RNA sequence: GUCAGCACAAACCGGAACCUCCCCAACUGCUCGACAUGAGGGGUGUUGAUGUCGGGGGAAACCCUCCCGUGAACCAGCGGGAUAGAGAGAAAGACAAAGACCGGGAAUAAACUAAAGCGCCUUAGUCUGGCGCUUUAGUUUU
Numbered sequence: 001g002u003c004a005g006c007a008c009a010a011a012c013c014g015g016a017a018c019c020u021c022c023c024c025a026a027c028u029g030c031u032c033g034a035c036a037u038g039a040g041g042g043g044u045g046u047u048g049a050u051g052u053c054g055g056g057g058g059a060a061a062c063c064c065u066c067c068c069g070u071g072a073a074c075c076a077g078c079g080g081g082a083u084a085g086a087g088a089g090a091a092a093g094a095c096a097a098a099g100a101c102c103g104g105g106a107a108u109a110a111a112c113u114a115a116a117g118c119g120c121c122u123u124a125g126u127c128u129g130g131c132g133c134u135u136u137a138g139u140u141u142u
Base pairs, nucleotide, nucleotide: 002049003048004047005046006045007044008043014022015021030040031039032038033037051095052094053093055064056063057062065082066081067080068079069078070077109141110140111139112138113137114136115135116134117133118132119131120130121129